[Rfam]
RNA sequence: AAACAAAAGUUUCAUUCGACUCAUAUAUCCCCUGGAUAUGGCAGGGAGUAUCUACCGGAAGCCGUAAAUUUCCGACUAUGAGUGAGGUUAUUGUGUAU
Numbered sequence: 001a002a003a004c005a006a007a008a009g010u011u012u013c014a015u016u017c018g019a020c021u022c023a024u025a026u027a028u029c030c031c032c033u034g035g036a037u038a039u040g041g042c043a044g045g046g047a048g049u050a051u052c053u054a055c056c057g058g059a060a061g062c063c064g065u066a067a068a069u070u071u072c073c074g075a076c077u078a079u080g081a082g083u084g085a086g087g088u089u090a091u092u093g094u095g096u097a098u
Base pairs, nucleotide, nucleotide: 019083020082021081022080023079024078025077030046031045032044033043034042056074057073058072059071060070061069
RNA: Purine riboswitch aptamer
Organism: Clostridium carboxidivorans